[Rfam]
This 96-nucleotide RNA from Actinidia chinensis belongs to the Rfam family "Small nucleolar RNA Z103".
The family's consensus secondary structure was predicted with PFOLD.
Lineage of the source: Eukaryota > Magnoliopsida > eudicotyledons > Actinidiaceae > Actinidia chinensis.
Rfam links the family to the GO terms RNA processing and nucleolus.
On this family, see Chen et al., Nucleic Acids Res 2003: "The high diversity of snoRNAs in plants: identification and comparative study of 120 snoRNA genes from Oryza sativa".
RNA sequence: AUGGAUCUGAUGAUUAUUUCCCAAGAUGAUCGAUCAUGAAAUUACUGAGAGCUCUUCUCUUUUUAGUGAAAUUCAAUCCAGGAUAUUCUGAUCCAU
Numbered sequence: 001a002u003g004g005a006u007c008u009g010a011u012g013a014u015u016a017u018u019u020c021c022c023a024a025g026a027u028g029a030u031c032g033a034u035c036a037u038g039a040a041a042u043u044a045c046u047g048a049g050a051g052c053u054c055u056u057c058u059c060u061u062u063u064u065a066g067u068g069a070a071a072u073u074c075a076a077u078c079c080a081g082g083a084u085a086u087u088c089u090g091a092u093c094c095a096u
Base pairs, nucleotide, nucleotide: 001096002095003094004093005092